[Rfam]
RNA sequence: GCUGACAGCGCGGGAGAGACCUGCCGAUUCGCAUUUGCGAAGAAGCAGGCGCCGAAGGAGCAACCGCCCCGGAAUCUCUCAGGCAAAAGGACCGCGCAGCGUCG
Numbered sequence: 001g002c003u004g005a006c007a008g009c010g011c012g013g014g015a016g017a018g019a020c021c022u023g024c025c026g027a028u029u030c031g032c033a034u035u036u037g038c039g040a041a042g043a044a045g046c047a048g049g050c051g052c053c054g055a056a057g058g059a060g061c062a063a064c065c066g067c068c069c070c071g072g073a074a075u076c077u078c079u080c081a082g083g084c085a086a087a088a089g090g091a092c093c094g095c096g097c098a099g100c101g102u103c104g
Stems, first nucleotide, its partner, number of pairs: 006099001008097006020049004051084003054080002058078003064072002
This 104-nucleotide RNA sequence from Novosphingobium sp. ST904 belongs to the Rfam family "Glycine riboswitch aptamer". Pairs were carried over by alignment from the consensus structure. Lineage of the source: Bacteria > Pseudomonadota > Alphaproteobacteria > Sphingomonadaceae > Novosphingobium. The match comes from Rfam's covariance-model search (69 bits).